Description:
This 108-nucleotide RNA from Miscanthus lutarioriparius belongs to the Rfam family "MIR5565 microRNA precursor family". The source organism's lineage runs through Eukaryota, Liliopsida, Poales, Andropogonodae and Miscanthus. Rfam 15.1 lists 3,346 matches to the family in 5 species.
RNA sequence: GCUUAUAUAUUCAUCUCAAUUCACGUGUGUUGAAGUGGAUCGGAGUGGAUUUAAACUAAGUUACAUUCCAAUCCACUCCAACACACGUGGAUUGAAGUAGAUACACAU
Numbered sequence: 001g002c003u004u005a006u007a008u009a010u011u012c013a014u015c016u017c018a019a020u021u022c023a024c025g026u027g028u029g030u031u032g033a034a035g036u037g038g039a040u041c042g043g044a045g046u047g048g049a050u051u052u053a054a055a056c057u058a059a060g061u062u063a064c065a066u067u068c069c070a071a072u073c074c075a076c077u078c079c080a081a082c083a084c085a086c087g088u089g090g091a092u093u094g095a096a097g098u099a100g101a102u103a104c105a106c107a108u
Stems, first nucleotide, its partner, number of pairs: 004107001006105001008103004013098002016095017035076006042069002045066003